RNA sequence: GAAAUCCCGCCUGGGUAAGUGCUAGCCACACGCCCAGUAUCGAGUGUUGCAGCCGAAGUAUAAGGGCCCAAAGCAAUUGUCUGCUGUCGCAGGUGGUUCCCCGAAGUCUUCGAUUGAAGCGUACACAGAGAGGUAGUGAGGAUGAAUGGAUCACAGGUGGCCCUGUGACCGUGAACGGGAUUAGCUCCGAAAUUAGGUACCUGUUGGAUUCUGCCCAAGGUUUGUUCACGCCCCAAGGCAACACUUCACGACGCGUCAUUGGCGAGCCUCGUGAAGAGACCUGGAGUCGGCGCCCC
Numbered sequence: 001g002a003a004a005u006c007c008c009g010c011c012u013g014g015g016u017a018a019g020u021g022c023u024a025g026c027c028a029c030a031c032g033c034c035c036a037g038u039a040u041c042g043a044g045u046g047u048u049g050c051a052g053c054c055g056a057a058g059u060a061u062a063a064g065g066g067c068c069c070a071a072a073g074c075a076a077u078u079g080u081c082u083g084c085u086g087u088c089g090c091a092g093g094u095g096g097u098u099c100c101c102c103g104a105a106g107u108c109u110u111c112g113a114u115u116g117a118a119g120c121g122u123a124c125a126c127a128g129a130g131a132g133g134u135a136g137u138g139a140g141g142a143u144g145a146a147u148g149g150a151u152c153a154c155a156g157g158u159g160g161c162c163c164u165g166u167g168a169c170c171g172u173g174a175a176c177g178g179g180a181u182u183a184g185c186u187c188c189g190a191a192a193u194u195a196g197g198u199a200c201c202u203g204u205u206g207g208a209u210u211c212u213g214c215c216c217a218a219g220g221u222u223u224g225u226u227c228a229c230g231c232c233c234c235a236a237g238g239c240a241a242c243a244c245u246u247c248a249c250g251a252c253g254c255g256u257c258a259u260u261g262g263c264g265a266g267c268c269u270c271g272u273g274a275a276g277a278g279a280c281c282u283g284g285a286g287u288c289g290g291c292g293c294c295c296c
Stems, first nucleotide, its partner, number of pairs: 012036004019031003023265001025263002038131001040129002044126004048121002050116003054112005182290001184287006206281002209279001211278002213239003219232003244276008253267002
The record is a 296-nucleotide sequence from Novipirellula herctigrandis, which matches "Group II catalytic intron D1-D4-6" in Rfam. The organism belongs to Novipirellula, within Bacteria. The pairing is the family consensus, mapped onto this sequence. A search with the family's covariance model found it, with a score of 93 bits.